[Rfam]
The family of this 82-nucleotide RNA sequence from Pangasianodon hypophthalmus is "mir-218 microRNA precursor family". The base pairs follow the family's consensus structure, which was predicted with RNAalifold. NCBI's taxonomy places the organism under Eukaryota, Opisthokonta, Vertebrata, Gnathostomata, Pangasianodon.
RNA sequence: GGGUUUUCCGUUGUGCUUGAUCUAACCAUGCUUGUCUCUCUCCACACUAUAACAUGGUUCUGUCAAGCGCCACGGGACGUCU
Numbered sequence: 001g002g003g004u005u006u007u008c009c010g011u012u013g014u015g016c017u018u019g020a021u022c023u024a025a026c027c028a029u030g031c032u033u034g035u036c037u038c039u040c041u042c043c044a045c046a047c048u049a050u051a052a053c054a055u056g057g058u059u060c061u062g063u064c065a066a067g068c069g070c071c072a073c074g075g076g077a078c079g080u081c082u
Base pairs, nucleotide, nucleotide: 001082002081003080004079006077007076008075009074013070014069015068016067017066018065019064024059025058026057027056028055029054030053
A reference for the family is Chen et al. (2005), "The developmental miRNA profiles of zebrafish as determined by small RNA cloning", Genes Dev. Rfam 15.1 lists 1,392 matches to the family in 648 species.